[Rfam]
RNA: transfer-messenger RNA
RNA sequence: GGGGAUGAUCGGUUUCGACGACGAUGGGUAGUUGAAGAGAAGCGGGUCGAGGACGCAGAGUCCGCUCGAUAACGAUCUCUGCAAACCAAUAGGUGCCAAGAACAAGAGCACCGAUUUCGCCCUCGCUGCCUAAUUAACCAGCGAGCUUCGAAAUCUGUCGGCCCUAGCGUUGCUUUCCGCUAGGGACUCGGCAUCGUUAAGAAAGCCACUGGUUGUUACGCCCGCUACAGGCGUAACUGCGACAUUUUUGUAGAUAAGUUCGUCAGGGCCUAGUUCGCGUGGAUCCCUGGAGCUGAGAAUAACUAUGAGCGAACUGCACCCGGAGAAGUCUUCUUUAUACAUCGCCGGACCGGGGUUCGAUUCCCCGCAUCUCCACUU
Numbered sequence: 001g002g003g004g005a006u007g008a009u010c011g012g013u014u015u016c017g018a019c020g021a022c023g024a025u026g027g028g029u030a031g032u033u034g035a036a037g038a039g040a041a042g043c044g045g046g047u048c049g050a051g052g053a054c055g056c057a058g059a060g061u062c063c064g065c066u067c068g069a070u071a072a073c074g075a076u077c078u079c080u081g082c083a084a085a086c087c088a089a090u091a092g093g094u095g096c097c098a099a100g101a102a103c104a105a106g107a108g109c110a111c112c113g114a115u116u117u118c119g120c121c122c123u124c125g126c127u128g129c130c131u132a133a134u135u136a137a138c139c140a141g142c143g144a145g146c147u148u149c150g151a152a153a154u155c156u157g158u159c160g161g162c163c164c165u166a167g168c169g170u171u172g173c174u175u176u177c178c179g180c181u182a183g184g185g186a187c188u189c190g191g192c193a194u195c196g197u198u199a200a201g202a203a204a205g206c207c208a209c210u211g212g213u214u215g216u217u218a219c220g221c222c223c224g225c226u227a228c229a230g231g232c233g234u235a236a237c238u239g240c241g242a243c244a245u246u247u248u249u250g251u252a253g254a255u256a257a258g259u260u261c262g263u264c265a266g267g268g269c270c271u272a273g274u275u276c277g278c279g280u281g282g283a284u285c286c287c288u289g290g291a292g293c294u295g296a297g298a299a300u301a302a303c304u305a306u307g308a309g310c311g312a313a314c315u316g317c318a319c320c321c322g323g324a325g326a327a328g329u330c331u332u333c334u335u336u337a338u339a340c341a342u343c344g345c346c347g348g349a350c351c352g353g354g355g356u357u358c359g360a361u362u363c364c365c366c367g368c369a370u371c372u373c374c375a376c377u378u
Stems, first nucleotide, its partner, number of pairs: 001374007019347002022344005028338001031336001034333005043322005048068004055082006122145007156193006162185008172206006212240002215237006225253004257294005264289003269282002273314004278307002351367005